The family of this 36-nucleotide sequence from a Peptococcaceae bacterium is "abiF RNA". It is annotated as a small RNA. Pairs were carried over by alignment from the consensus structure, which is taken from published work. A search with the family's covariance model found it, with a score of 40 bits. From the family's description: Actinobacteria, Bacteroidetes, Clostridia, Proteobacteria, one Clostridia phage.
[Rfam]
RNA sequence: CCCCCUACGCCUCUCCACGAUGCGCACCAUGGGGGG
Numbered sequence: 001c002c003c004c005c006u007a008c009g010c011c012u013c014u015c016c017a018c019g020a021u022g023c024g025c026a027c028c029a030u031g032g033g034g035g036g
Base pairs, nucleotide, nucleotide: 001035002034003033004032005031008024009023010022